Source information:
This 85-nucleotide sequence from Raphanus sativus belongs to the Rfam family "small nucleolar RNA snoR114". By type it is a C/D-box small nucleolar RNA. Its family is annotated with nucleolus and RNA processing in the Gene Ontology. The match comes from Rfam's covariance-model search (54 bits). Lineage of the source: Eukaryota > Viridiplantae > Embryophyta > Gunneridae > Raphanus.
RNA sequence: GAGCUGUGAAGAUAAUGGCAAUAGCGUCGGUUGGGUCCUUCGCAUUCAUCUGCUUCAUGUGAUGAGAUUUGCCGCACCUGAGCUC
Numbered sequence: 001g002a003g004c005u006g007u008g009a010a011g012a013u014a015a016u017g018g019c020a021a022u023a024g025c026g027u028c029g030g031u032u033g034g035g036u037c038c039u040u041c042g043c044a045u046u047c048a049u050c051u052g053c054u055u056c057a058u059g060u061g062a063u064g065a066g067a068u069u070u071g072c073c074g075c076a077c078c079u080g081a082g083c084u085c
Base pairs, nucleotide, nucleotide: 001085002084003083004082